Overview:
FMN riboswitch aptamer (RFN element): a 156-nucleotide RNA sequence from Cnuibacter physcomitrellae. The match comes from Rfam's covariance-model search (73 bits).

RNA sequence: ACGUGCUCCGGGGUCAGUGAGAUUCUGAACCGGCGGUGACAGUCCGCGACCCGCGGUCCUCCCAGGAGGGCGGCGGUUGACCUGGUGGAACUCCAGGACCGACGGUGAUGGCGCAGCCGCAAGGCUGGCGUCGAGUCCGGAUGAGAGGAAGCACAG
Numbered sequence: 001a002c003g004u005g006c007u008c009c010g011g012g013g014u015c016a017g018u019g020a021g022a023u024u025c026u027g028a029a030c031c032g033g034c035g036g037u038g039a040c041a042g043u044c045c046g047c048g049a050c051c052c053g054c055g056g057u058c059c060u061c062c063c064a065g066g067a068g069g070g071c072g073g074c075g076g077u078u079g080a081c082c083u084g085g086u087g088g089a090a091c092u093c094c095a096g097g098a099c100c101g102a103c104g105g106u107g108a109u110g111g112c113g114c115a116g117c118c119g120c121a122a123g124g125c126u127g128g129c130g131u132c133g134a135g136u137c138c139g140g141a142u143g144a145g146a147g148g149a150a151g152c153a154c155a156g
Base pairs, nucleotide, nucleotide: 003154004153005152006151007150008148009147015027016026017025031101032100033047034046035045036044042099043098051076052075053074054073081097082096083095084094085093103139104138105137